This 81-nucleotide sequence from Deinococcus aquiradiocola belongs to the Rfam family "ZMP/ZTP riboswitch aptamer (pfl RNA motif)". A search with the family's covariance model found it, with a score of 53 bits. Lineage of the source: Bacteria > Deinococci > Deinococcales > Deinococcaceae > Deinococcus.
RNA sequence: GCCGGUCGCGGUGACUGGCGUAACGUGGACACCACGGGGAAGCCGCGAGAAUACCUUUGGCCGCACGCCUGGGCCGGACGC
Numbered sequence: 001g002c003c004g005g006u007c008g009c010g011g012u013g014a015c016u017g018g019c020g021u022a023a024c025g026u027g028g029a030c031a032c033c034a035c036g037g038g039g040a041a042g043c044c045g046c047g048a049g050a051a052u053a054c055c056u057u058u059g060g061c062c063g064c065a066c067g068c069c070u071g072g073g074c075c076g077g078a079c080g081c
Stems, first nucleotide, its partner, number of pairs: 006048007015039002017069005025035004058076005